[Rfam]
RNA sequence: CAGGUAAUACGUAACUGGCGUACACAGAAGUUACUGUGAGGGAGCGUAUUAUACAUAUAGCCGUUCGCCUGGGUGAGAGGU
Numbered sequence: 001c002a003g004g005u006a007a008u009a010c011g012u013a014a015c016u017g018g019c020g021u022a023c024a025c026a027g028a029a030g031u032u033a034c035u036g037u038g039a040g041g042g043a044g045c046g047u048a049u050u051a052u053a054c055a056u057a058u059a060g061c062c063g064u065u066c067g068c069c070u071g072g073g074u075g076a077g078a079g080g081u
Stems, first nucleotide, its partner, number of pairs: 004052009015041002017069004024037004058076001060074003

Rfam assigns this 81-nucleotide sequence from Halolactibacillus alkaliphilus to the family "ZMP/ZTP riboswitch aptamer (pfl RNA motif)". It scores 49 bits against the family's covariance model. The family's consensus secondary structure is taken from published work. Rfam links the family to the GO terms one-carbon metabolic process and regulation of purine nucleotide biosynthetic process.